RNA sequence: CGUGUGGUGCCGGUGCAGGAUCUUUCCUGGCACGGGAGAGCGACACGGCCUUUACUGAGGU
Numbered sequence: 001c002g003u004g005u006g007g008u009g010c011c012g013g014u015g016c017a018g019g020a021u022c023u024u025u026c027c028u029g030g031c032a033c034g035g036g037a038g039a040g041c042g043a044c045a046c047g048g049c050c051u052u053u054a055c056u057g058a059g060g061u
Stems, first nucleotide, its partner, number of pairs: 001047005007041002010036002013033003
RNA: L31-Gammaproteobacteria ribosomal protein leader
Organism: [Pantoea] beijingensis